[Rfam]
RNA: Phenylalanine leader peptide
Organism: Proteus penneri
RNA sequence: AAUGUUAAAUAUCGCUUUUUUCCGUUUCUUUUUUUACUUUAGCGCCUAAUUCAAGGGGGCUUUUGCGCGUAAGAAAAGAAACGAAAAGUAGCGCCUGAGCCUCCAAUAUGGAGGCUUUUUUGUU
Numbered sequence: 001a002a003u004g005u006u007a008a009a010u011a012u013c014g015c016u017u018u019u020u021u022c023c024g025u026u027u028c029u030u031u032u033u034u035u036a037c038u039u040u041a042g043c044g045c046c047u048a049a050u051u052c053a054a055g056g057g058g059g060c061u062u063u064u065g066c067g068c069g070u071a072a073g074a075a076a077a078g079a080a081a082c083g084a085a086a087a088g089u090a091g092c093g094c095c096u097g098a099g100c101c102u103c104c105a106a107u108a109u110g111g112a113g114g115c116u117u118u119u120u121u122g123u124u
Stems, first nucleotide, its partner, number of pairs: 014092003019087003023083010034072004045056003059066002097117009